[Rfam]
RNA sequence: AGAGAUCACUAGCUUGAGGCCAUAGCAGAAGCGCUCAUGGCAUGGCUUGUCAGAUUCCAACAAAUCCGCAAACUCUGCU
Number, nucleotide and partner (000 for none) at each position: 001a000002g000003a000004g000005a000006u000007c000008a000009c000010u000011a000012g000013c000014u000015u000016g000017a000018g047019g046020c045021c044022a000023u000024a079025g078026c077027a076028g075029a074030a000031g043032c000033g041034c000035u000036c000037a000038u000039g000040g000041c033042a000043u031044g021045g020046c019047u018048u000049g000050u000051c068052a000053g066054a065055u064056u063057c000058c000059a000060a000061c000062a000063a056064a055065u054066c053067c000068g051069c000070a000071a000072a000073c000074u029075c028076u027077g026078c025079u024